[Rfam]
RNA sequence: GGAACUGCGGCGGGAGAGUCCCGCGUCUGCGGGCGCCGAAGGAGCAACCACCCGGGAAUCUCUCAGGCCCACAGACCGCCGCACGCGA
Numbered sequence: 001g002g003a004a005c006u007g008c009g010g011c012g013g014g015a016g017a018g019u020c021c022c023g024c025g026u027c028u029g030c031g032g033g034c035g036c037c038g039a040a041g042g043a044g045c046a047a048c049c050a051c052c053c054g055g056g057a058a059u060c061u062c063u064c065a066g067g068c069c070c071a072c073a074g075a076c077c078g079c080c081g082c083a084c085g086c087g088a
Stems, first nucleotide, its partner, number of pairs: 006083008020033004035068003038064002042062003048055002
Dot-bracket structure: .....((((((((......((((......)))).(((((..(((...((....))....))))).))).......)))))))).....
This 88-nucleotide RNA from Rhodococcus sp. SMB37 belongs to the Rfam family "Glycine riboswitch aptamer". Its family is annotated with glycine biosynthetic process in the Gene Ontology. The pairing is the family consensus, mapped onto this sequence.